[Rfam]
RNA sequence: GGCACGCGUCGGGAGAGCGCGCGACGGUUUGUCACCAAGCCAGUUGCGCCGCCGAAGGGGCACACCCACAAACUCUCAGGCAAAAGGACCGAACGCGUCGG
Numbered sequence: 001g002g003c004a005c006g007c008g009u010c011g012g013g014a015g016a017g018c019g020c021g022c023g024a025c026g027g028u029u030u031g032u033c034a035c036c037a038a039g040c041c042a043g044u045u046g047c048g049c050c051g052c053c054g055a056a057g058g059g060g061c062a063c064a065c066c067c068a069c070a071a072a073c074u075c076u077c078a079g080g081c082a083a084a085a086g087g088a089c090c091g092a093a094c095g096c097g098u099c100g101g
Stems, first nucleotide, its partner, number of pairs: 006096003009092004019049007051081003054077002058075003